RNA sequence: UCUGUGGAGAGUAUAGGAAAAUGUGAGUAGUAUUUUAGAUACGAAAGCAUACUUGAUGAAGCAGAAA
Numbered sequence: 001u002c003u004g005u006g007g008a009g010a011g012u013a014u015a016g017g018a019a020a021a022u023g024u025g026a027g028u029a030g031u032a033u034u035u036u037a038g039a040u041a042c043g044a045a046a047g048c049a050u051a052c053u054u055g056a057u058g059a060a061g062c063a064g065a066a067a
Stems, first nucleotide, its partner, number of pairs: 001065005009054005022049003030042003

The record is a 67-nucleotide RNA sequence, which matches "RAGATH-18 RNA" in Rfam. The family's RNA type in Rfam is small RNA. Rfam's curators write: Actinobacteria, Firmicutes, Fusobacteria, Thermotogae (1 example). Pairs were carried over by alignment from the consensus structure, which is taken from published work.